[Rfam]
RNA sequence: GGUGUCGAUGAUGUCGCUUUUACCUACAUUGUUUGAGUGCCCCUGAGAAAAAACCCGAAAUCCUGAGACACCC
Numbered sequence: 001g002g003u004g005u006c007g008a009u010g011a012u013g014u015c016g017c018u019u020u021u022a023c024c025u026a027c028a029u030u031g032u033u034u035g036a037g038u039g040c041c042c043c044u045g046a047g048a049a050a051a052a053a054c055c056c057g058a059a060a061u062c063c064u065g066a067g068a069c070a071c072c073c
Base pairs, nucleotide, nucleotide: 001072003070004069005068006067
This 73-nucleotide RNA sequence from Pomatostomus ruficeps belongs to the Rfam family "Small nucleolar RNA SNORD34".
snoRNA U34 is found in intron 5 of the ribosomal protein L13a gene in humans.
The base pairs follow the family's consensus structure, which was predicted with PFOLD.
A search with the family's covariance model found it, with a score of 48 bits.
Taxonomically the source falls in Pomatostomus (Eukaryota, Dinosauria, Saurischia, Telluraves).
Its family is annotated with nucleolus and RNA processing in the Gene Ontology.
Clan: SNORD34 clan.